[Rfam]
RNA sequence: GCAAUAGUGGCUCACGUGGGCGGUCGGCAUCACCUCGGAAAGGAGGUGAUGCCAAUGGAGACGUUUCAGGCUCUUCAAUUGAUGUUCCUAUUUGGAAUGUUUAUUCUAGCGCUUUUAACGUUUAUAAAAAAAUAGACCGCCCACCGUGCAAAGGUUAAGUGCGAUCUAUUUCGUAAAAACCCUAUAAGCCGACCGCCUAGUAGCGCGGCUAUUGCUGACCGUGGACGUUACAGCGUCUGCG
Numbered sequence: 001g002c003a004a005u006a007g008u009g010g011c012u013c014a015c016g017u018g019g020g021c022g023g024u025c026g027g028c029a030u031c032a033c034c035u036c037g038g039a040a041a042g043g044a045g046g047u048g049a050u051g052c053c054a055a056u057g058g059a060g061a062c063g064u065u066u067c068a069g070g071c072u073c074u075u076c077a078a079u080u081g082a083u084g085u086u087c088c089u090a091u092u093u094g095g096a097a098u099g100u101u102u103a104u105u106c107u108a109g110c111g112c113u114u115u116u117a118a119c120g121u122u123u124a125u126a127a128a129a130a131a132a133u134a135g136a137c138c139g140c141c142c143a144c145c146g147u148g149c150a151a152a153g154g155u156u157a158a159g160u161g162c163g164a165u166c167u168a169u170u171u172c173g174u175a176a177a178a179a180c181c182c183u184a185u186a187a188g189c190c191g192a193c194c195g196c197c198u199a200g201u202a203g204c205g206c207g208g209c210u211a212u213u214g215c216u217g218a219c220c221g222u223g224g225a226c227g228u229u230a231c232a233g234c235g236u237c238u239g240c241g
Stems, first nucleotide, its partner, number of pairs: 001215005007209001008191005015146001016144007028048002031045001033043003057125001059123005070085002095116003156173001158171001193208004220241009
A member of the RNA family "BsrG", 241 nucleotides long.
Rfam's curators write: bsrE, bsrG and bsrH pair through intermolecular interactions with antisense sRNAs. They form type I toxin/antitoxin system that includes an mRNA encoding for a short, toxic peptide (bsrE, bsrG and bsrH) and an antitoxin that is comprised of an antisense RNA. bsrG encodes a 39-amino-acid toxin, and the 180 nucleotide antisense sRNA called SR4 acts as the antitoxin (they overlap by 123 nucleotides). SR4 interaction with the 3'UTR of bsrG RNA promotes bsrG degradation and inhibits its translation. BsrG interferes with cell envelope biosynthesis, causes membrane invaginations and delocalisation of the cell wall synthesis and initiates autolysis. bsrE RNA encodes 30 amino-acid toxin peptide. Its antitoxin gene, SR5 overlaps by 112 nucleotides at the 3' end of bsrE. SR5 also overlaps bsrG from nucleotide 163 to 52 (Rfam overlap check). The antitoxin SR5 promotes bsrE degradation but unlike SR4 it does not directly inhibits toxin mRNA translation.